[Rfam]
Nucleotides: 071
Base pairs, nucleotide, nucleotide: 003069004068005067006066009063010062011061012060013059014058015057016056018054019053020052023049024048025047026046027045028044029043030042
Number, partner (000 for none) and nucleotide at each position: 001000a002000g003069c004068u005067u006066u007000u008000c009063g010062u011061g012060u013059u014058c015057a016056c017000a018054g019053c020052g021000g022000a023049c024048c025047u026046u027045g028044a029043u030042u031000u032000a033000a034000u035000u036000u037000c038000a039000c040000a041000c042030a043029a044028u045027u046026a047025a048024g049023g050000c051000a052020c053019g054018c055000g056016g057015u058014g059013a060012a061011u062010g063009c064000c065000a066006a067005g068004a069003g070000a071000g